RNA sequence: CUGACAGAAGAGAGUGAGCACACGCAGGUAAUUGUAUUAGAAAAUAUCUUUGCAGGUGCGUGCUCGCUCCUCUUCUGUCAG
Numbered sequence: 001c002u003g004a005c006a007g008a009a010g011a012g013a014g015u016g017a018g019c020a021c022a023c024g025c026a027g028g029u030a031a032u033u034g035u036a037u038u039a040g041a042a043a044a045u046a047u048c049u050u051u052g053c054a055g056g057u058g059c060g061u062g063c064u065c066g067c068u069c070c071u072c073u074u075c076u077g078u079c080a081g
Base pairs, nucleotide, nucleotide: 001081002080003079004078005077006076007075008074009073010072011071012070013068014067015066016065017064018063019062020061021060023058024057025056
Description:
The record is an 81-nucleotide RNA from Citrus unshiu, which matches "mir-156 microRNA precursor family" in Rfam. The source organism's lineage runs through Eukaryota, Streptophyta, Pentapetalae, Rutaceae and Citrus. For this family Rfam cites "microRNAs: tiny regulators with great potential" (Ambros, Cell, 2001). Rfam describes the family as follows. This family represents the plant microRNA (miRNA) precursor mir-156.